RNA sequence: AAGUGCUACAGCUCCUUUAGAAUUUGUCUAGCAGGUUUUCUGUUCUCUACCAGAAGACCCCA
Numbered sequence: 001a002a003g004u005g006c007u008a009c010a011g012c013u014c015c016u017u018u019a020g021a022a023u024u025u026g027u028c029u030a031g032c033a034g035g036u037u038u039u040c041u042g043u044u045c046u047c048u049a050c051c052a053g054a055a056g057a058c059c060c061c062a
Base pairs, nucleotide, nucleotide: 034059035058036057037056038055039054040053041052042051044049
A member of the RNA family "U7 small nuclear RNA" from Otolemur garnettii, 62 nucleotides long. A search with the family's covariance model found it, with a score of 61 bits. On this family, see Marz et al., Genomics Proteomics Bioinformatics 2007: "U7 snRNAs: a computational survey". Taxonomically the source falls in Otolemur (Eukaryota, Metazoa, Euteleostomi, Dipnotetrapodomorpha). Animal histone pre-mRNAs are spliced by a different mechanism than nuclear pre-mRNAs and self-splicing introns. This processing involves the U7 snRNP, which contains only one RNA species: U7. The 5' end of U7 RNA is thought to base-pair to a conserved spacer element downstream of the cleavage site in histone pre-mRNA. This family contains a number of annotated U7 pseudogenes.